Shown here is a 73-nucleotide sequence from Fasciola gigantica, a member of the family "mir-71 microRNA precursor family". A search with the family's covariance model found it, with a score of 56 bits. On this family, see Liu et al., BMC Genomics 2010: "MicroRNAs of Bombyx mori identified by Solexa sequencing".
RNA sequence: UCGCUGUGAAAGACGAUGGUAGUGAGAUGCAAGACGUUGCUGUUCAUCUCCCUACCCCGUCUUUUCUGGUGGG
Numbered sequence: 001u002c003g004c005u006g007u008g009a010a011a012g013a014c015g016a017u018g019g020u021a022g023u024g025a026g027a028u029g030c031a032a033g034a035c036g037u038u039g040c041u042g043u044u045c046a047u048c049u050c051c052c053u054a055c056c057c058c059g060u061c062u063u064u065u066c067u068g069g070u071g072g073g
Stems, first nucleotide, its partner, number of pairs: 008065008018056002021053002024050006